Alphaproteobacterial ar14: a 122-nucleotide RNA sequence from Manganibacter manganicus. Taxonomically the source falls in Manganibacter (Bacteria, Pseudomonadota, Alphaproteobacteria, Hyphomicrobiales). For this family Rfam cites "A survey of sRNA families in alpha-proteobacteria" (del Val et al., RNA Biol, 2012). It scores 82 bits against the family's covariance model. The family's RNA type in Rfam is small RNA.
RNA sequence: CCGGUUUCGUCAGCGCCGACCUCCUCCCCGGCCCUGACGGACAAGGCCAGCCUUUACCUCCUCCCAGAGGUUGGCCACCGAAACGGCGCCCGUCGGACCUCCUCCCCCGGCGGGCGUUGUAA
Numbered sequence: 001c002c003g004g005u006u007u008c009g010u011c012a013g014c015g016c017c018g019a020c021c022u023c024c025u026c027c028c029c030g031g032c033c034c035u036g037a038c039g040g041a042c043a044a045g046g047c048c049a050g051c052c053u054u055u056a057c058c059u060c061c062u063c064c065c066a067g068a069g070g071u072u073g074g075c076c077a078c079c080g081a082a083a084c085g086g087c088g089c090c091c092g093u094c095g096g097a098c099c100u101c102c103u104c105c106c107c108c109g110g111c112g113g114g115c116g117u118u119g120u121a122a
Base pairs, nucleotide, nucleotide: 007040008039009038011036012035013034015032016031017030045076046075047074048073049072050071051070052069053068054067086117087116088115089114090113091112092111093110094109095108096107